[Rfam]
RNA sequence: AAAAAUCAAAUUCGUAUGGAGUUUGUAACGUUUGCCUACGUUUGCCGCUAGGAGCGCUGUUCUAACUCCACACAAAUAUGAGUUA
Numbered sequence: 001a002a003a004a005a006u007c008a009a010a011u012u013c014g015u016a017u018g019g020a021g022u023u024u025g026u027a028a029c030g031u032u033u034g035c036c037u038a039c040g041u042u043u044g045c046c047g048c049u050a051g052g053a054g055c056g057c058u059g060u061u062c063u064a065a066c067u068c069c070a071c072a073c074a075a076a077u078a079u080g081a082g083u084u085a
Stems, first nucleotide, its partner, number of pairs: 008079001010077003014073002018069001020067004025062001027061004036052002040048002
This 85-nucleotide sequence from Bombyx mori belongs to the Rfam family "mir-2807 microRNA precursor family". The family's consensus secondary structure was predicted with RNAalifold.